[Rfam]
RNA sequence: UCUGCACACAAACCCAAGGUCAUGUCUCACAAGUGAUAUGACCUUAAUAUGUGGUGCACAAAUUAAUAAUUGAAUCUUGUCGCCUUUCUCUGAUGCUAUACAGUGCCGUUGAAAGUGAAUUCAAGGUCCAACAAAU
Numbered sequence: 001u002c003u004g005c006a007c008a009c010a011a012a013c014c015c016a017a018g019g020u021c022a023u024g025u026c027u028c029a030c031a032a033g034u035g036a037u038a039u040g041a042c043c044u045u046a047a048u049a050u051g052u053g054g055u056g057c058a059c060a061a062a063u064u065a066a067u068a069a070u071u072g073a074a075u076c077u078u079g080u081c082g083c084c085u086u087u088c089u090c091u092g093a094u095g096c097u098a099u100a101c102a103g104u105g106c107c108g109u110u111g112a113a114a115g116u117g118a119a120u121u122c123a124a125g126g127u128c129c130a131a132c133a134a135a136u
Stems, first nucleotide, its partner, number of pairs: 003058005008052002018043009072129001074127005084115005091108002095106002